[Rfam]
Shown here is an 87-nucleotide sequence from Lentibacter algarum, a member of the family "Glycine riboswitch aptamer". The pairing is the family consensus, mapped onto this sequence. A search with the family's covariance model found it, with a score of 54 bits.

RNA sequence: AACAACCCCACGGGAGAACUGGCGCGAGUCAGUGCCGAAGGAGCAACCGCCCCGGAAACUCUCAGGCCACAGGACCGCGGGAUUGAC
Numbered sequence: 001a002a003c004a005a006c007c008c009c010a011c012g013g014g015a016g017a018a019c020u021g022g023c024g025c026g027a028g029u030c031a032g033u034g035c036c037g038a039a040g041g042a043g044c045a046a047c048c049g050c051c052c053c054g055g056a057a058a059c060u061c062u063c064a065g066g067c068c069a070c071a072g073g074a075c076c077g078c079g080g081g082a083u084u085g086a087c
Stems, first nucleotide, its partner, number of pairs: 007081003011077003019032004034067003037063002041061003047055002